[Rfam]
Nucleotides: 066
Base pairs, nucleotide, nucleotide: 001066003064004063005062006061007060009058010057012055014049015048019045020044021043022042023041024040025039027031
Number, partner (000 for none) and nucleotide at each position: 001066c002000a003064u004063g005062g006061a007060g008000a009058a010057a011000a012055c013000u014049g015048a016000c017000u018000u019045g020044g021043c022042u023041g024040g025039u026000a027031u028000g029000g030000u031027a032000c033000a034000a035000a036000g037000a038000a039025g040024c041023c042022a043021g044020c045019u046000u047000a048015u049014u050000u051000a052000c053000a054000u055012g056000a057010u058009u059000a060007u061006u062005c063004c064003a065000c066001g

A member of the RNA family "MAT2A 3'UTR stem loop F" from Aotus nancymaae, 66 nucleotides long. A reference for the family is Parker et al. (2011), "New families of human regulatory RNA structures identified by comparative analysis of vertebrate genomes", Genome Res. The source organism's lineage runs through Eukaryota, Metazoa, Theria, Haplorrhini and Aotus. A search with the family's covariance model found it, with a score of 70 bits.